The record is a 74-nucleotide RNA from Lacticaseibacillus saniviri, which matches "Group II catalytic intron D1-D4-1" in Rfam. The pairing is the family consensus, mapped onto this sequence. Rfam describes the family as follows. Group II introns are found in rRNA, tRNA and mRNA of organelles in fungi, plants and protists, and also in mRNA in bacteria. NCBI's taxonomy places the organism under Bacteria, Bacillati, Bacilli, Lactobacillales, Lacticaseibacillus saniviri. The match comes from Rfam's covariance-model search (58 bits). Gene Ontology term of the family: Group II intron splicing. The literature on the family includes a 2001 paper in EMBO J by Chu et al., "Control of branch-site choice by a group II intron".
[Rfam]
RNA sequence: AAAGCAAGUCAGAAAUGGCUGGUUAAGUGUACAGGAGUCAGCCGAGGUCAUAGUAGUGGGUAACCAUGAAGGAC
Numbered sequence: 001a002a003a004g005c006a007a008g009u010c011a012g013a014a015a016u017g018g019c020u021g022g023u024u025a026a027g028u029g030u031a032c033a034g035g036a037g038u039c040a041g042c043c044g045a046g047g048u049c050a051u052a053g054u055a056g057u058g059g060g061u062a063a064c065c066a067u068g069a070a071g072g073a074c
Stems, first nucleotide, its partner, number of pairs: 002024001004023002007020005038045002047074003056067004